[Rfam]
RNA sequence: UAAAAAUACGAAUGAUUUUCUCGUAUAAGUUUGGAAAUACGGUCCAAACGUUUCUACCAAACUACCGUAAAUAGUUUGACUACGAGAGACGAUCACAACUCU
Numbered sequence: 001u002a003a004a005a006a007u008a009c010g011a012a013u014g015a016u017u018u019u020c021u022c023g024u025a026u027a028a029g030u031u032u033g034g035a036a037a038u039a040c041g042g043u044c045c046a047a048a049c050g051u052u053u054c055u056a057c058c059a060a061a062c063u064a065c066c067g068u069a070a071a072u073a074g075u076u077u078g079a080c081u082a083c084g085a086g087a088g089a090c091g092a093u094c095a096c097a098a099c100u101c102u
Stems, first nucleotide, its partner, number of pairs: 018088008029049007058078007
The family of this 102-nucleotide sequence from Bacillus smithii is "Purine riboswitch aptamer".
Lineage of the source: Bacteria > Bacillota > Bacilli > Caryophanales > Bacillus smithii.
The match comes from Rfam's covariance-model search (93 bits).
Its family is annotated with purine nucleobase biosynthetic process in the Gene Ontology.
Riboswitches are metabolite binding domains within certain messenger RNAs that serve as precision sensors for their corresponding targets.
The family's consensus secondary structure is taken from published work.